[Rfam]
The record is a 107-nucleotide sequence from Brevundimonas sp. M20, which matches "Cauldobacter sRNA CC3552" in Rfam.

RNA sequence: GGAGGCGGCGACGCCCCCCCGACUUGAGACCGGCGCCAGCCGGUCUGUCGCCUCCGCACCUCAUUCUCGAUGAUGCCACUUCAAGGCGGACCAUAUGCGGUCCGCCU
Numbered sequence: 001g002g003a004g005g006c007g008g009c010g011a012c013g014c015c016c017c018c019c020c021g022a023c024u025u026g027a028g029a030c031c032g033g034c035g036c037c038a039g040c041c042g043g044u045c046u047g048u049c050g051c052c053u054c055c056g057c058a059c060c061u062c063a064u065u066c067u068c069g070a071u072g073a074u075g076c077c078a079c080u081u082c083a084a085g086g087c088g089g090a091c092c093a094u095a096u097g098c099g100g101u102c103c104g105c106c107u
Base pairs, nucleotide, nucleotide: 001055002054003053004052005051006050007049008048009047010046012021013020028045029044030043031042032041033040034039084107085106086105087104088103089102090101091100092099
The match comes from Rfam's covariance-model search (102 bits).